A member of the RNA family "c-di-AMP riboswitch aptamer (ydaO/yuaA leader)" from Paractinoplanes atraurantiacus, 147 nucleotides long.

RNA sequence: CGACGGAAUUCAACUCAGGCAUGGAGCGGGGGACCCACACGUUCCUCGGCACGCCACCGCGCGUGCCUCGGGGUGAAGCCGCCACGCGCGGCCGGGCACCUCAGCCCGAACCCGACAGCUCACCUCGUAGGCGUGGAGGUUGUUCUU
Numbered sequence: 001c002g003a004c005g006g007a008a009u010u011c012a013a014c015u016c017a018g019g020c021a022u023g024g025a026g027c028g029g030g031g032g033a034c035c036c037a038c039a040c041g042u043u044c045c046u047c048g049g050c051a052c053g054c055c056a057c058c059g060c061g062c063g064u065g066c067c068u069c070g071g072g073g074u075g076a077a078g079c080c081g082c083c084a085c086g087c088g089c090g091g092c093c094g095g096g097c098a099c100c101u102c103a104g105c106c107c108g109a110a111c112c113c114g115a116c117a118g119c120u121c122a123c124c125u126c127g128u129a130g131g132c133g134u135g136g137a138g139g140u141u142g143u144u145c146u147u
Stems, first nucleotide, its partner, number of pairs: 001133002004130001009025003026128006036070001071113003079091004094107004